[Rfam]
Shown here is a 102-nucleotide sequence from Virgibacillus necropolis, a member of the family "Purine riboswitch aptamer". Clan: Purine riboswitches. A search with the family's covariance model found it, with a score of 83 bits.
RNA sequence: UAAAUUAAAUAAAAAGCCGUUCGUAUAUCCUCGAAAAUAUGGUUCGAAAGUAUCUACCGGUACACCGUAAAUGUACUGACUAUGAAGGCAAAAUCUAUAUUG
Numbered sequence: 001u002a003a004a005u006u007a008a009a010u011a012a013a014a015a016g017c018c019g020u021u022c023g024u025a026u027a028u029c030c031u032c033g034a035a036a037a038u039a040u041g042g043u044u045c046g047a048a049a050g051u052a053u054c055u056a057c058c059g060g061u062a063c064a065c066c067g068u069a070a071a072u073g074u075a076c077u078g079a080c081u082a083u084g085a086a087g088g089c090a091a092a093a094u095c096u097a098u099a100u101u102g
Stems, first nucleotide, its partner, number of pairs: 018088001020086006031047005058078007